[Rfam]
RNA sequence: CAAAAGUGAAAUAGAUAUAAACGUAUAAUAAACCUAAUUGGUGGUUUGAGUCUCUACCACAAGACCUUAAUCUUGUGACUACGUAUCAUGAUAUCUUUAUU
Numbered sequence: 001c002a003a004a005a006g007u008g009a010a011a012u013a014g015a016u017a018u019a020a021a022c023g024u025a026u027a028a029u030a031a032a033c034c035u036a037a038u039u040g041g042u043g044g045u046u047u048g049a050g051u052c053u054c055u056a057c058c059a060c061a062a063g064a065c066c067u068u069a070a071u072c073u074u075g076u077g078a079c080u081a082c083g084u085a086u087c088a089u090g091a092u093a094u095c096u097u098u099a100u101u
Stems, first nucleotide, its partner, number of pairs: 019086001021084005029048006058077007
RNA: Purine riboswitch aptamer
Organism: Acholeplasma palmae